A member of the RNA family "chrB-a RNA" from Marivita hallyeonensis, 84 nucleotides long. The base pairs follow the family's consensus structure, which is taken from published work.
RNA sequence: GCCAUGGGGCCGCGGACGCCUCGUGAGGCGACAGCCCAAGACCCGCAUCCUGACAACCUGUAUCACGGGAAGGAUGCCGCCAUG
Numbered sequence: 001g002c003c004a005u006g007g008g009g010c011c012g013c014g015g016a017c018g019c020c021u022c023g024u025g026a027g028g029c030g031a032c033a034g035c036c037c038a039a040g041a042c043c044c045g046c047a048u049c050c051u052g053a054c055a056a057c058c059u060g061u062a063u064c065a066c067g068g069g070a071a072g073g074a075u076g077c078c079g080c081c082a083u084g
Base pairs, nucleotide, nucleotide: 005023006022007021008020009019010018045077046076047075048074049073050072
Dot-bracket structure: ....((((((.......)))))).....................((((((.....................)))))).......
Rfam 15.1 lists 347 matches to the family in 339 species. It is annotated as a cis-regulatory element.